The family of this 56-nucleotide RNA is "Plastid-psbA-4 3UTR RNA". Pairs were carried over by alignment from the consensus structure, which was predicted with LocARNA.

[Rfam]
RNA sequence: AAAAAAAGGAGCAAUAACAACCUCUUGAUAGAACAAGAGUUUUGUUAUUGCUCCCC
Numbered sequence: 001a002a003a004a005a006a007a008g009g010a011g012c013a014a015u016a017a018c019a020a021c022c023u024c025u026u027g028a029u030a031g032a033a034c035a036a037g038a039g040u041u042u043u044g045u046u047a048u049u050g051c052u053c054c055c056c
Stems, first nucleotide, its partner, number of pairs: 008054009020042001022039006